[Rfam]
Bacterial RNase P class A: a 375-nucleotide RNA sequence from Thermobrachium celere. Ribonuclease P (RNase P) is a ubiquitous endoribonuclease, found in archaea, bacteria and eukarya as well as chloroplasts and mitochondria. The family's RNA type in Rfam is ribozyme. Pairs were carried over by alignment from the consensus structure, which is taken from published work.

RNA sequence: UGAGUAAGCUAGAUGGUCGCUGCCAUGAGUAAUCAUGGGAGAGGAAAGUCCGAGCUCCAUAGGGCAGGGUGCUGGGUAACACCCAGUGGGGGCGACCCUAAGGAAAGUGCAACAGAGAUAUACCGCCACAAUCAAUCUGAUGAUUGAUGAGUGCAACAAUUGUUGCGUGGUAAGGGUGGAAAGGUGAGGUAAGAGCUCACCAGCACACUGGCGACAGUGUGGCUCUGUAAACCCCACCUGGAGCAAGACCAAAUAGGAGGGCUUAUGCGCUGGCCCGGCGUGCCCUCGGGUAGUGUCGCUUGAGCCUACUGGCAACAGUAGGCCUAGAUAGAUGACCAUCCACGACAGAACUCGGCUUACAGGCUUACUCAAUUA
Numbered sequence: 001u002g003a004g005u006a007a008g009c010u011a012g013a014u015g016g017u018c019g020c021u022g023c024c025a026u027g028a029g030u031a032a033u034c035a036u037g038g039g040a041g042a043g044g045a046a047a048g049u050c051c052g053a054g055c056u057c058c059a060u061a062g063g064g065c066a067g068g069g070u071g072c073u074g075g076g077u078a079a080c081a082c083c084c085a086g087u088g089g090g091g092g093c094g095a096c097c098c099u100a101a102g103g104a105a106a107g108u109g110c111a112a113c114a115g116a117g118a119u120a121u122a123c124c125g126c127c128a129c130a131a132u133c134a135a136u137c138u139g140a141u142g143a144u145u146g147a148u149g150a151g152u153g154c155a156a157c158a159a160u161u162g163u164u165g166c167g168u169g170g171u172a173a174g175g176g177u178g179g180a181a182a183g184g185u186g187a188g189g190u191a192a193g194a195g196c197u198c199a200c201c202a203g204c205a206c207a208c209u210g211g212c213g214a215c216a217g218u219g220u221g222g223c224u225c226u227g228u229a230a231a232c233c234c235c236a237c238c239u240g241g242a243g244c245a246a247g248a249c250c251a252a253a254u255a256g257g258a259g260g261g262c263u264u265a266u267g268c269g270c271u272g273g274c275c276c277g278g279c280g281u282g283c284c285c286u287c288g289g290g291u292a293g294u295g296u297c298g299c300u301u302g303a304g305c306c307u308a309c310u311g312g313c314a315a316c317a318g319u320a321g322g323c324c325u326a327g328a329u330a331g332a333u334g335a336c337c338a339u340c341c342a343c344g345a346c347a348g349a350a351c352u353c354g355g356c357u358u359a360c361a362g363g364c365u366u367a368c369u370c371a372a373u374u375a
Stems, first nucleotide, its partner, number of pairs: 001371010012340007020041002023038006046358003050355005055243004062276004067239005072086005087101001088099004102234002107232002109228003123175002125171005183201006203223001204221007247297003250293001257287006267281005304323008